The family of this 56-nucleotide RNA sequence from a Bradyrhizobiaceae bacterium is "terC RNA". The source organism's lineage runs through Bacteria, Pseudomonadati, Pseudomonadota, Alphaproteobacteria and Nitrobacteraceae.
[Rfam]
RNA sequence: GUCCGGGACCGGGCCCCUCUGGCAGCUUGCAAAAGCUGUGAUGUCGGAUCGGACGU
Numbered sequence: 001g002u003c004c005g006g007g008a009c010c011g012g013g014c015c016c017c018u019c020u021g022g023c024a025g026c027u028u029g030c031a032a033a034a035g036c037u038g039u040g041a042u043g044u045c046g047g048a049u050c051g052g053a054c055g056u
Stems, first nucleotide, its partner, number of pairs: 006050002009047004022039007
The family's RNA type in Rfam is cis-regulatory element. The base pairs follow the family's consensus structure, which is taken from published work.